[Rfam]
Rfam assigns this 88-nucleotide sequence from Cupriavidus basilensis to the family "Glycine riboswitch aptamer". The base pairs follow the family's consensus structure. Lineage of the source: Bacteria > Pseudomonadati > Burkholderiales > Burkholderiaceae > Cupriavidus.

RNA sequence: GCCAUCCGACCGGGAGAGCGCGCAGAUCUUGCGCCGCCGAAGGGGUAUCACCCGAAAACUCUCAGGCACCAUGGACUGGUUGGAUCGG
Numbered sequence: 001g002c003c004a005u006c007c008g009a010c011c012g013g014g015a016g017a018g019c020g021c022g023c024a025g026a027u028c029u030u031g032c033g034c035c036g037c038c039g040a041a042g043g044g045g046u047a048u049c050a051c052c053c054g055a056a057a058a059c060u061c062u063c064a065g066g067c068a069c070c071a072u073g074g075a076c077u078g079g080u081u082g083g084a085u086c087g088g
Stems, first nucleotide, its partner, number of pairs: 006083008020034004036067003039063002043061003049054001